[Rfam]
The family of this 129-nucleotide sequence from Paenalicyclobacillus mengziensis is "c-di-AMP riboswitch aptamer (ydaO/yuaA leader)". The pairing is the family consensus, mapped onto this sequence. The literature on the family includes a 2004 paper in Proc Natl Acad Sci U S A by Barrick et al., "New RNA motifs suggest an expanded scope for riboswitches in bacterial genetic control". Lineage of the source: Bacteria > Bacillati > Caryophanales > Alicyclobacillaceae > Paenalicyclobacillus.
RNA sequence: CACCGGAAUGCGCCGAACCAUGAUUGGGCGGGGGAUCUCUUCUCUUGGGGUGAAGGACGCUACCGCGUCCAGGGCAACCUUUCUGCCCGAAUCCGUCAACUAACCUCGCAGGCGAUAGAAGGGAGAUUA
Numbered sequence: 001c002a003c004c005g006g007a008a009u010g011c012g013c014c015g016a017a018c019c020a021u022g023a024u025u026g027g028g029c030g031g032g033g034g035a036u037c038u039c040u041u042c043u044c045u046u047g048g049g050g051u052g053a054a055g056g057a058c059g060c061u062a063c064c065g066c067g068u069c070c071a072g073g074g075c076a077a078c079c080u081u082u083c084u085g086c087c088c089g090a091a092u093c094c095g096u097c098a099a100c101u102a103a104c105c106u107c108g109c110a111g112g113c114g115a116u117a118g119a120a121g122g123g124a125g126a127u128u129a
Base pairs, nucleotide, nucleotide: 011114012113013112014111018027019026020025028109029108030107031106032105033104038047048094049093050092056069057068058067059066072088073087074086075085